[Rfam]
RNA sequence: GAUAGAAACAUAAUUGGGUGCAGCGUUGAUGAAAUGUUCCGAUGCCCUAAUGAAGAUUCAGAACGAAUACGAACUUUCAUCAACGCUGCACUCAAUGAUGUUUCUU
Number, nucleotide and partner (000 for none) at each position: 001g000002a000003u000004a000005g000006a103007a102008a101009c100010a099011u098012a000013a096014u095015u094016g093017g092018g091019u090020g089021c088022a087023g086024c085025g084026u083027u082028g081029a000030u079031g078032a077033a000034a000035u000036g000037u000038u000039c000040c000041g000042a000043u000044g000045c000046c000047c000048u000049a000050a000051u000052g000053a000054a000055g000056a000057u000058u000059c000060a000061g000062a000063a000064c000065g000066a000067a000068u000069a000070c000071g000072a000073a000074c000075u000076u000077u032078c031079a030080u000081c028082a027083a026084c025085g024086c023087u022088g021089c020090a019091c018092u017093c016094a015095a014096u013097g000098a011099u010100g009101u008102u007103u006104c000105u000106u000